[Rfam]
About this RNA:
The record is a 151-nucleotide RNA sequence from Paenibacillus ferrarius, which matches "c-di-AMP riboswitch aptamer (ydaO/yuaA leader)" in Rfam. A search with the family's covariance model found it, with a score of 70 bits. Lineage of the source: Bacteria > Bacillati > Bacilli > Caryophanales > Paenibacillus.
RNA sequence: AGACAAAAAAUGCCGAAUCCAAGAGCAGCAAAAGCUCAUGGUACGGGGGACUUCUUUACUUGGGGUGAAUGAUCACUUGGCUUGCCAAGUGCGCUAGGGAACCUCUUCCCGAACCCGUCAACUAACCUCGGAGGCUUCAAGGAGGCAAGGG
Dot-bracket structure: ...........(((....((...................))..(((((....(........)(((.....(..(((((((....)))))))..)..((((......))))...))).........)))))..)))................